The record is a 189-nucleotide sequence from Segatella oulorum, which matches "Bacteroidales-1 6S-Bacteroidales RNA suggested" in Rfam. A search with the family's covariance model found it, with a score of 116 bits.
RNA sequence: GGUUGUGCCGAUUCGAUUGGGAUACUCAUCAAAUAAUAUUGAAAACCGAGCACGUUUUGCUUGCUAAUGGCGGGCCACAUAAAGCUUCUUUGAAGUGAAGUCUCUCGCAGACCGGUGGAUUACAAAGGCGGUAAACACUCAAAUAAUGAUUUACUCGGAGUUUCAUCACAUCAUCGGGCAACCCCUUUU
Numbered sequence: 001g002g003u004u005g006u007g008c009c010g011a012u013u014c015g016a017u018u019g020g021g022a023u024a025c026u027c028a029u030c031a032a033a034u035a036a037u038a039u040u041g042a043a044a045a046c047c048g049a050g051c052a053c054g055u056u057u058u059g060c061u062u063g064c065u066a067a068u069g070g071c072g073g074g075c076c077a078c079a080u081a082a083a084g085c086u087u088c089u090u091u092g093a094a095g096u097g098a099a100g101u102c103u104c105u106c107g108c109a110g111a112c113c114g115g116u117g118g119a120u121u122a123c124a125a126a127g128g129c130g131g132u133a134a135a136c137a138c139u140c141a142a143a144u145a146a147u148g149a150u151u152u153a154c155u156c157g158g159a160g161u162u163u164c165a166u167c168a169c170a171u172c173a174u175c176g177g178g179c180a181a182c183c184c185c186u187u188u189u
Base pairs, nucleotide, nucleotide: 054136055135056134058133059132061131062130063129064128065127068124069123075118076117077116078115087094100112101111102110
Dot-bracket structure: .....................................................(((.((.(((((..((.....((((........(......).....(((.......)))..))))....))..)))))))))).....................................................
Bacteroidales-1 was first reported in a comparative genomics-based approach of genome and metagenome sequences from Weinberg et al. 2010 In a high-resolution transcriptome map study of Bacteroides thetaiotaomicron, Ryan et al. 2020 report this sRNA as 6S RNA homologue of Bacteroides, in the study they obtain evidence of small product RNAs (pRNAs) related to 6S function. The organism belongs to Segatella oulorum, within Bacteria. On this family, see Ryan et al., Nat Commun 2020: "A high-resolution transcriptome map identifies small RNA regulation of metabolism in the gut microbe Bacteroides thetaiotaomicron".